[Rfam]
RNA sequence: CCGCUAUAGCACAGAGAGCGUCAAUUUUGGCCGCCGAAGGGGCAAGCGCUGCGCUGAUUUUGUAGGGCCAGCAGCGUGAAACUCUCAGGCAAAAGGAUGUGCUAUGGUCU
Numbered sequence: 001c002c003g004c005u006a007u008a009g010c011a012c013a014g015a016g017a018g019c020g021u022c023a024a025u026u027u028u029g030g031c032c033g034c035c036g037a038a039g040g041g042g043c044a045a046g047c048g049c050u051g052c053g054c055u056g057a058u059u060u061u062g063u064a065g066g067g068c069c070a071g072c073a074g075c076g077u078g079a080a081a082c083u084c085u086c087a088g089g090c091a092a093a094a095g096g097a098u099g100u101g102c103u104a105u106g107g108u109c110u
Stems, first nucleotide, its partner, number of pairs: 006105008020031004033090003036086002040084003046077007
A member of the RNA family "Glycine riboswitch aptamer" from Phototrophicus methaneseepsis, 110 nucleotides long.